RNA sequence: ACAACGUAUUCCGAACCCGCCGCAGGCGGGUACCAACCGAGAGCAGUCUCCACGGUGGUCAAACAAUACGGACAGCAGGUCAAAAAUAAACGUUUUA
Number, nucleotide and partner (000 for none) at each position: 001a000002c000003a000004a000005c000006g069007u068008a067009u066010u065011c000012c000013g000014a000015a031016c030017c029018c028019g027020c026021c000022g000023c000024a000025g000026g020027c019028g018029g017030g016031u015032a059033c058034c057035a000036a000037c055038c054039g053040a000041g050042a049043g000044c000045a000046g091047u090048c000049u042050c041051c000052a000053c039054g038055g037056u000057g034058g033059u032060c000061a000062a000063a000064c000065a010066a009067u008068a007069c006070g000071g081072a080073c079074a000075g000076c000077a000078g000079g073080u072081c071082a000083a000084a000085a000086a000087u000088a000089a000090a047091c046092g000093u000094u000095u000096u000097a000

Rfam assigns this 97-nucleotide RNA from Planktosalinus lacus to the family "SAM-I/IV (S-adenosyl methionine) riboswitch aptamer". The organism belongs to Planktosalinus, within Bacteria. The family is grouped with related families in Rfam's "SAM clan". It scores 49 bits against the family's covariance model.